Record summary: The family of this 137-nucleotide RNA from Corynebacterium phocae is "L31-Corynebacteriaceae ribosomal protein leader".
RNA sequence: ACUCGAGCACGAUCUUCUGCUUGAAUUUUCGGUUGGAUCACUUAAGGUGUUGCCCAAUUUUGGUGGCGUAGUUCCCGGUGGCCGGCCGUUGUGUUCAAUAAGCUAGAAGAACCGACUCGAAGUUCAACCCUGAGGGA
Numbered sequence: 001a002c003u004c005g006a007g008c009a010c011g012a013u014c015u016u017c018u019g020c021u022u023g024a025a026u027u028u029u030c031g032g033u034u035g036g037a038u039c040a041c042u043u044a045a046g047g048u049g050u051u052g053c054c055c056a057a058u059u060u061u062g063g064u065g066g067c068g069u070a071g072u073u074c075c076c077g078g079u080g081g082c083c084g085g086c087c088g089u090u091g092u093g094u095u096c097a098a099u100a101a102g103c104u105a106g107a108a109g110a111a112c113c114g115a116c117u118c119g120a121a122g123u124u125c126a127a128c129c130c131u132g133a134g135g136g137a
Stems, first nucleotide, its partner, number of pairs: 001123003004119004013110007020102004
Description
It scores 57 bits against the family's covariance model.